UnaL2 LINE 3' element: a 54-nucleotide RNA from Megalops atlanticus. The base pairs follow the family's consensus structure, which is taken from published work. The match comes from Rfam's covariance-model search (56 bits). Rfam's curators write: The eel long interspersed element (LINE) UnaL2 and its partner short interspersed element (SINE) share a conserved 3' tail containing a stem-loop that is critical for their retrotransposition. Presumably, the first step of retrotransposition is the recognition of their 3' tails by UnaL2-encoded reverse transcriptase. The solution structure of a 17-nucleotide RNA derived from the 3' tail of UnaL2 was determined by NMR.
RNA sequence: AAUGGAUAGAAUUGUGAGUCACUCUGGAUGAGAGUGUCUGCUAAAUGACAUUAA
Numbered sequence: 001a002a003u004g005g006a007u008a009g010a011a012u013u014g015u016g017a018g019u020c021a022c023u024c025u026g027g028a029u030g031a032g033a034g035u036g037u038c039u040g041c042u043a044a045a046u047g048a049c050a051u052u053a054a
Stems, first nucleotide, its partner, number of pairs: 013043001014041003020036006